[Rfam]
RNA: Makes More Granules Regulator RNA (mmgR)
RNA sequence: AGAAUGGGCCUUUCAGGCAUCCUCUCCUAAAACUUUCAGGGCCGAUCCCUCCGGGGAUUGGCCCUUUUUUUGGCUUUU
Numbered sequence: 001a002g003a004a005u006g007g008g009c010c011u012u013u014c015a016g017g018c019a020u021c022c023u024c025u026c027c028u029a030a031a032a033c034u035u036u037c038a039g040g041g042c043c044g045a046u047c048c049c050u051c052c053g054g055g056g057a058u059u060g061g062c063c064c065u066u067u068u069u070u071u072g073g074c075u076u077u078u
Stems, first nucleotide, its partner, number of pairs: 008018004040063009